Notes: ZMP/ZTP riboswitch aptamer (pfl RNA motif): an 84-nucleotide sequence from Tsukamurella paurometabola.

[Rfam]
RNA sequence: ACCACGGAUCGUGACUGGCGCAAGUAGGUGGAGCACCACCGGGAAGCGAUCAUGACGACGAUGCCGUGCGCCUGGGCCACCGAC
Number, nucleotide and partner (000 for none) at each position: 001a000002c000003c000004a000005c000006g000007g051008a050009u049010c048011g047012u046013g000014a000015c043016u042017g072018g071019c070020g069021c068022a000023a000024g000025u000026a000027g000028g039029u038030g037031g036032a000033g000034c000035a000036c031037c030038a029039c028040c000041g000042g016043g015044a000045a000046g012047c011048g010049a009050u008051c007052a000053u000054g000055a000056c000057g000058a000059c000060g000061a000062u000063g077064c076065c075066g000067u000068g021069c020070g019071c018072c017073u000074g000075g065076g064077c063078c000079a000080c000081c000082g000083a000084c000

Rfam links the family to the GO terms regulation of purine nucleotide biosynthetic process and one-carbon metabolic process.